[Rfam]
RNA sequence: UAACUAAAAGGGAAAAGUUGUAUCGCUAUAUGUUCUAUUCUAUCAUAAGCGUAUAGCUUUUCCCCUUGGUUU
Dot-bracket structure: ..(((((..(((.((..(((((...((.((((...........))))))..)))))..)).))).)))))..
Numbered sequence: 001u002a003a004c005u006a007a008a009a010g011g012g013a014a015a016a017g018u019u020g021u022a023u024c025g026c027u028a029u030a031u032g033u034u035c036u037a038u039u040c041u042a043u044c045a046u047a048a049g050c051g052u053a054u055a056g057c058u059u060u061u062c063c064c065c066u067u068g069g070u071u072u
Stems, first nucleotide, its partner, number of pairs: 003070005010064003014060002018056005026049002029047004
The record is a 72-nucleotide RNA sequence from Papilio xuthus, which matches "mir-965 microRNA precursor family" in Rfam. The match comes from Rfam's covariance-model search (77 bits). Gene Ontology terms of the family: RISC complex and miRNA-mediated post-transcriptional gene silencing.